[Rfam]
RNA sequence: CCGGGUGGCCGCCUUCCCUGUCCUCCAGGAGCUCACGUAUGCCUGCCUGUGAGCGCCUCGACGACAGAGCCGGCGUCCGCCUCAGCACCUGC
Numbered sequence: 001c002c003g004g005g006u007g008g009c010c011g012c013c014u015u016c017c018c019u020g021u022c023c024u025c026c027a028g029g030a031g032c033u034c035a036c037g038u039a040u041g042c043c044u045g046c047c048u049g050u051g052a053g054c055g056c057c058u059c060g061a062c063g064a065c066a067g068a069g070c071c072g073g074c075g076u077c078c079g080c081c082u083c084a085g086c087a088c089c090u091g092c
Stems, first nucleotide, its partner, number of pairs: 005080004010075004016069001018067003022063001024061002027058003031054006037046003
RNA: mir-339 microRNA precursor family